[Rfam]
The record is a 106-nucleotide RNA sequence from Plutella xylostella, which matches "mir-8517 microRNA precursor family" in Rfam. Pairs were carried over by alignment from the consensus structure, which was predicted with RNAalifold. It scores 111 bits against the family's covariance model. NCBI's taxonomy places the organism under Eukaryota, Bilateria, Dicondylia, Glossata, Plutella. Gene Ontology terms of the family: RISC complex and miRNA-mediated post-transcriptional gene silencing.
RNA sequence: UUAUAGUAUGCUUUAGCUAUUGAACUGUUUUGUCACUCUGACAUAGAACAAUUUGUUCUUUGACAGAGAUGGACAAAACAGUUGAAUAGCUAAAGCGUCCUGUAAC
Numbered sequence: 001u002u003a004u005a006g007u008a009u010g011c012u013u014u015a016g017c018u019a020u021u022g023a024a025c026u027g028u029u030u031u032g033u034c035a036c037u038c039u040g041a042c043a044u045a046g047a048a049c050a051a052u053u054u055g056u057u058c059u060u061u062g063a064c065a066g067a068g069a070u071g072g073a074c075a076a077a078a079c080a081g082u083u084g085a086a087u088a089g090c091u092a093a094a095g096c097g098u099c100c101u102g103u104a105a106c
Stems, first nucleotide, its partner, number of pairs: 001105006011095011023083006029067007047057004